Record summary:
The record is a 67-nucleotide RNA sequence from Triticum aestivum, which matches "Small nucleolar RNA Z105" in Rfam. Pairs were carried over by alignment from the consensus structure, which was predicted with CMfinder. Gene Ontology terms of the family: RNA processing and nucleolus. A search with the family's covariance model found it, with a score of 45 bits. For this family Rfam cites "The high diversity of snoRNAs in plants: identification and comparative study of 120 snoRNA genes from Oryza sativa" (Chen et al., Nucleic Acids Res, 2003). The source organism's lineage runs through Eukaryota, Euphyllophyta, Poales, Triticinae and Triticum.
RNA sequence: CUGGCAUAAUGAGGAAGACAAUUGGUGUCCGAUCUAUUUGAUGACAAAUUGCUCCUACUCAUUCUAA
Numbered sequence: 001c002u003g004g005c006a007u008a009a010u011g012a013g014g015a016a017g018a019c020a021a022u023u024g025g026u027g028u029c030c031g032a033u034c035u036a037u038u039u040g041a042u043g044a045c046a047a048a049u050u051g052c053u054c055c056u057a058c059u060c061a062u063u064c065u066a067a
Stems, first nucleotide, its partner, number of pairs: 006062002009059001026043001029040001